A member of the RNA family "msiK RNA" from Nocardia otitidiscaviarum, 60 nucleotides long. Rfam classes the family as a cis-regulatory element. The match comes from Rfam's covariance-model search (61 bits). The source organism's lineage runs through Bacteria, Bacillati, Mycobacteriales, Nocardiaceae and Nocardia.
RNA sequence: GGCUCACCACCCUCUACAACGGAUCGUCCGGCACGUUCCUGCCGGUGAAGGGAUGCAAUU
Dot-bracket structure: .........((((.((...........((((((......)))))))).))))........
Numbered sequence: 001g002g003c004u005c006a007c008c009a010c011c012c013u014c015u016a017c018a019a020c021g022g023a024u025c026g027u028c029c030g031g032c033a034c035g036u037u038c039c040u041g042c043c044g045g046u047g048a049a050g051g052g053a054u055g056c057a058a059u060u
Stems, first nucleotide, its partner, number of pairs: 010052004015047002028045006
The family has 120 seed sequences and 1,374 matches in Rfam 15.1.